This 133-nucleotide sequence from Actinoplanes regularis belongs to the Rfam family "c-di-AMP riboswitch aptamer (ydaO/yuaA leader)". NCBI's taxonomy places the organism under Bacteria, Actinomycetes, Micromonosporales, Micromonosporaceae, Actinoplanes. The match comes from Rfam's covariance-model search (82 bits).
RNA sequence: GACGAGCCACCGCCUAAUCGUCGCGAGGCGAGCCGGGGACCCAGGUACCCGGGGUGAAGCCGUGAACCAGCGGCCGGGCGAGCUUCCCGCCCGAACCCGUCAGCUAACCCGGUCGGCGGCCGAGUGGGAAGAA
Numbered sequence: 001g002a003c004g005a006g007c008c009a010c011c012g013c014c015u016a017a018u019c020g021u022c023g024c025g026a027g028g029c030g031a032g033c034c035g036g037g038g039a040c041c042c043a044g045g046u047a048c049c050c051g052g053g054g055u056g057a058a059g060c061c062g063u064g065a066a067c068c069a070g071c072g073g074c075c076g077g078g079c080g081a082g083c084u085u086c087c088c089g090c091c092c093g094a095a096c097c098c099g100u101c102a103g104c105u106a107a108c109c110c111g112g113u114c115g116g117c118g119g120c121c122g123a124g125u126g127g128g129a130a131g132a133a
Base pairs, nucleotide, nucleotide: 011118012117013116014115018031019030020029021028022027032113033112034111035110036109037108042051052098053097054096060073061072062071063070076092077091078090079089